[Rfam]
RNA sequence: CGGAUGAUAUAGAUGAGGCGGAGUUUGACACGAGCAUGUAUCAUUUCAGUGAGCAUAUACCUCCUACGAGGGAAAGCAGGAGUUUGAGCGAAGCUCACAGGAACAACAGCCAGCUGCAGAAGUGGUGCAUGAAACAGGACAAGUUACUCGCCAAGUGCCUUAGGGCUAUCAAGUUUCUGAAGAACAAGCUCAGCUGCUCCUCUUCCACUACAGCUAUUCCG
Numbered sequence: 001c002g003g004a005u006g007a008u009a010u011a012g013a014u015g016a017g018g019c020g021g022a023g024u025u026u027g028a029c030a031c032g033a034g035c036a037u038g039u040a041u042c043a044u045u046u047c048a049g050u051g052a053g054c055a056u057a058u059a060c061c062u063c064c065u066a067c068g069a070g071g072g073a074a075a076g077c078a079g080g081a082g083u084u085u086g087a088g089c090g091a092a093g094c095u096c097a098c099a100g101g102a103a104c105a106a107c108a109g110c111c112a113g114c115u116g117c118a119g120a121a122g123u124g125g126u127g128c129a130u131g132a133a134a135c136a137g138g139a140c141a142a143g144u145u146a147c148u149c150g151c152c153a154a155g156u157g158c159c160u161u162a163g164g165g166c167u168a169u170c171a172a173g174u175u176u177c178u179g180a181a182g183a184a185c186a187a188g189c190u191c192a193g194c195u196g197c198u199c200c201u202c203u204u205c206c207a208c209u210a211c212a213g214c215u216a217u218u219c220c221g
Base pairs, nucleotide, nucleotide: 001221002220003219004218010210012208015205016204017203018202020200021199022198023197024196

Annotation
Rfam assigns this 221-nucleotide sequence from Arabidopsis thaliana to the family "MIR854 microRNA precursor family". The family has 3 seed sequences and 167 matches in Rfam 15.1. A search with the family's covariance model found it, with a score of 193 bits. Its family is annotated with RISC complex and miRNA-mediated post-transcriptional gene silencing in the Gene Ontology. The literature on the family includes a 2006 paper in Plant Cell by Arteaga-Vazquez et al., "A family of microRNAs present in plants and animals". Taxonomically the source falls in Arabidopsis (Eukaryota, eudicotyledons, malvids, Brassicaceae).